[Rfam]
Rfam assigns this 52-nucleotide RNA from Oxynema acuminatum to the family "Nitrogen stress-induced RNA 1". The family's RNA type in Rfam is small RNA. NCBI's taxonomy places the organism under Bacteria, Cyanobacteriota, Oscillatoriales, Oxynema, Oxynema acuminatum.

RNA sequence: GAGUAGAUGCACCCUGAUGGCAACGCCCACUCACCCAGUGGGCGUUUUUUUU
Numbered sequence: 001g002a003g004u005a006g007a008u009g010c011a012c013c014c015u016g017a018u019g020g021c022a023a024c025g026c027c028c029a030c031u032c033a034c035c036c037a038g039u040g041g042g043c044g045u046u047u048u049u050u051u052u
Stems, first nucleotide, its partner, number of pairs: 003012002024044008
Dot-bracket structure: ..((......))...........((((((((.....))))))))........